[Rfam]
Record summary:
This 54-nucleotide sequence from Microcebus murinus belongs to the Rfam family "Editing element of GABA-3 exon 9". The family has 52 seed sequences and 4,208 matches in Rfam 15.1. Lineage of the source: Eukaryota > Dipnotetrapodomorpha > Theria > Euarchontoglires > Microcebus. It is annotated as a cis-regulatory element. The sequence is in the family's curated seed alignment.
Nucleotides: 054
Base pairs, nucleotide, nucleotide: 001054002053003052006051007050008049010047011046013045014044016041017040019038020037022035023034024033025032026031
Number, partner (000 for none) and nucleotide at each position: 001054a002053a003052g004000g005000u006051g007050g008049c009000u010047u011046a012000u013045g014044c015000a016041a017040c018000a019038g020037c021000u022035a023034u024033g025032g026031a027000u028000u029000g030000g031026u032025u033024u034023a035022u036000u037020g038019c039000a040017g041016u042000g043000u044014g045013c046011u047010a048000u049008g050007c051006c052003u053002u054001u